Source information
tRNA: an 87-nucleotide sequence from Escherichia coli. NCBI's taxonomy places the organism under Bacteria, Pseudomonadati, Gammaproteobacteria, Enterobacteriaceae, Escherichia.
[Rfam]
Nucleotides: 087
Base pairs, nucleotide, nucleotide: 001086002085003084004083005082006081007080010026011025012024028044029043030042031041032040063079064078065077066076067075
Number, partner (000 for none) and nucleotide at each position: 001086g002085g003084a004083g005082a006081g007080a008000u009000g010026c011025c012024g013000g014000a015000g016000c017000g018000g019000c020000u021000g022000a023000a024012c025011g026010g027000a028044c029043c030042g031041g032040u033000c034000u035000c036000g037000a038000a039000a040032a041031c042030c043029g044028g045000a046000g047000u048000a049000g050000g051000g052000g053000c054000a055000a056000c057000u058000c059000u060000a061000c062000c063079g064078g065077g066076g067075g068000u069000u070000c071000a072000a073000a074000u075067c076066c077065c078064c079063c080007u081006c082005u083004c084003u085002c086001c087000g

Clan: tRNA clan. It is annotated as a transfer RNA.